Rfam assigns this 76-nucleotide sequence from Mystacornis crossleyi to the family "mir-196 microRNA precursor family".
Its family is annotated with gene silencing by miRNA and RISC complex in the Gene Ontology.
The organism belongs to Mystacornis, within Eukaryota.
Nucleotides: 076
Stems, first nucleotide, its partner, number of pairs: 004073016022055004027050001029048001031046001
Number, partner (000 for none) and nucleotide at each position: 001000u002000c003000u004073g005072u006071g007070a008069a009068u010067u011066a012065g013064g014063u015062a016061g017060u018059u019058u020000c021000a022055u023054g024053u025052u026000g027050u028000u029048g030000g031046g032000c033000u034000c035000u036000c037000c038000g039000u040000u041000u042000c043000a044000a045000a046031c047000a048029c049000c050027a051000g052025g053024a054023c055022a056000u057000c058019g059018a060017a061016c062015u063014a064013c065012c066011u067010g068009a069008u070007u071006u072005a073004c074000u075000c076000c